[Rfam]
Rfam assigns this 86-nucleotide RNA sequence from Salmo salar to the family "Vault RNA". It scores 34 bits against the family's covariance model. Lineage of the source: Eukaryota > Eumetazoa > Craniata > Gnathostomata > Salmo. A reference for the family is Stadler et al. (2009), "Evolution of Vault RNAs", Mol Biol Evol. This family of RNAs are found as part of the enigmatic vault ribonucleoprotein complex. The complex consists of a major vault protein (MVP), two minor vault proteins (VPARP and TEP1), and several small untranslated RNA molecules. It has been suggested that the vault complex is involved in drug resistance.

RNA sequence: UUUUCAGAGUAGCUCAGUGGUUACUUCGGAAUGUUCUCAGUUCCAAUCUGAGAAGUUCAAACCCACGGCCCCUGUCUGGUGUUUUU
Numbered sequence: 001u002u003u004u005c006a007g008a009g010u011a012g013c014u015c016a017g018u019g020g021u022u023a024c025u026u027c028g029g030a031a032u033g034u035u036c037u038c039a040g041u042u043c044c045a046a047u048c049u050g051a052g053a054a055g056u057u058c059a060a061a062c063c064c065a066c067g068g069c070c071c072c073u074g075u076c077u078g079g080u081g082u083u084u085u086u
Stems, first nucleotide, its partner, number of pairs: 002081001004079004012070001014068002017066004025060002028058002